[Rfam]
RNA sequence: ACCCUUUGCAAUUUCGCAGGGCGUGCCUAUAUCGGUCGGGCCGGAUUCGUCCGGCUAUGGCGAUAAAGUGCGGCGUGAAAUAGAUGCAGCGGACCCGGGGGCAGUACCCGGCGACUCCACCAUAACCCCUCUUCCGAGAGGGGCUCUGACGGGGUCGAACUAGGAUCGACGUGUAUUGAAAGGCGCUGUUUUUGCCCGGGCUGAGUAACCCGUUCAAGGCUCAAAACCACAAGUGCUAACGAUAACGAAGCACUCGCGAUUGCGGCGUAACUGAAGGCCUAACGGCCUAGGUUACCCCAAAAGAACGCGGUUCGGGCUGCACCGGGCAACAGAAGCAGACACC
Numbered sequence: 001a002c003c004c005u006u007u008g009c010a011a012u013u014u015c016g017c018a019g020g021g022c023g024u025g026c027c028u029a030u031a032u033c034g035g036u037c038g039g040g041c042c043g044g045a046u047u048c049g050u051c052c053g054g055c056u057a058u059g060g061c062g063a064u065a066a067a068g069u070g071c072g073g074c075g076u077g078a079a080a081u082a083g084a085u086g087c088a089g090c091g092g093a094c095c096c097g098g099g100g101g102c103a104g105u106a107c108c109c110g111g112c113g114a115c116u117c118c119a120c121c122a123u124a125a126c127c128c129c130u131c132u133u134c135c136g137a138g139a140g141g142g143g144c145u146c147u148g149a150c151g152g153g154g155u156c157g158a159a160c161u162a163g164g165a166u167c168g169a170c171g172u173g174u175a176u177u178g179a180a181a182g183g184c185g186c187u188g189u190u191u192u193u194g195c196c197c198g199g200g201c202u203g204a205g206u207a208a209c210c211c212g213u214u215c216a217a218g219g220c221u222c223a224a225a226a227c228c229a230c231a232a233g234u235g236c237u238a239a240c241g242a243u244a245a246c247g248a249a250g251c252a253c254u255c256g257c258g259a260u261u262g263c264g265g266c267g268u269a270a271c272u273g274a275a276g277g278c279c280u281a282a283c284g285g286c287c288u289a290g291g292u293u294a295c296c297c298c299a300a301a302a303g304a305a306c307g308c309g310g311u312u313c314g315g316g317c318u319g320c321a322c323c324g325g326g327c328a329a330c331a332g333a334a335g336c337a338g339a340c341a342c343c
Stems, first nucleotide, its partner, number of pairs: 040055005059196005070189007085175003089172003095111005112157007197212004202223003308324004314340001
The record is a 343-nucleotide RNA from Sphingomonas sp. HMWF008, which matches "Alphaproteobacteria transfer-messenger RNA" in Rfam. Bacterial tmRNA, also known as 10Sa RNA or SsrA, is named for its dual tRNA and mRNA-like properties. Its role is to liberate the mRNA from a stalled ribosome. To accomplish this part of the tmRNA is used as a reading frame that ends in a translation stop signal. For this family Rfam cites "Phylogenetic analysis of tmRNA secondary structure" (Williams and Bartel, RNA, 1996). Lineage of the source: Bacteria > Pseudomonadota > Alphaproteobacteria > Sphingomonadales > Sphingomonas. It is annotated as a non-coding RNA gene. The base pairs follow the family's consensus structure, which is taken from published work. A search with the family's covariance model found it, with a score of 237 bits.